[Rfam]
RNA: Glycine riboswitch aptamer
RNA sequence: AUUAUCCUGAUGGGAGAGCCCGGACACGCCGGCGCCGAAGGAGCAACCGCCCCGGAAACUCUCAGGCACAUGUACCGUCAGGAAAGA
Number, nucleotide and partner (000 for none) at each position: 001a000002u000003u000004a000005u000006c082007c081008u080009g079010a078011u077012g076013g075014g000015a000016g000017a000018g000019c000020c032021c031022g030023g029024a000025c000026a000027c000028g000029c023030c022031g021032g020033c000034g067035c066036c065037g063038a062039a000040g000041g061042a060043g059044c000045a000046a000047c055048c054049g000050c000051c000052c000053c000054g048055g047056a000057a000058a000059c043060u042061c041062u038063c037064a000065g036066g035067c034068a000069c000070a000071u000072g000073u000074a000075c013076c012077g011078u010079c009080a008081g007082g006083a000084a000085a000086g000087a000